[Rfam]
RNA sequence: CCACUCUGAAAAGCAGAGCAGCGCACCAACGCUGUUCUCGCCCACGGUGAAAGCCGCGCCUGUGCGCGGUGAAACUCUCAGGCCGGAUGACAGAGGGGGA
Numbered sequence: 001c002c003a004c005u006c007u008g009a010a011a012a013g014c015a016g017a018g019c020a021g022c023g024c025a026c027c028a029a030c031g032c033u034g035u036u037c038u039c040g041c042c043c044a045c046g047g048u049g050a051a052a053g054c055c056g057c058g059c060c061u062g063u064g065c066g067c068g069g070u071g072a073a074a075c076u077c078u079c080a081g082g083c084c085g086g087a088u089g090a091c092a093g094a095g096g097g098g099g100a
Stems, first nucleotide, its partner, number of pairs: 001098002004095005015038009040083003044078001047077001049075001053070005
RNA: Glycine riboswitch aptamer
Organism: Leifsonia poae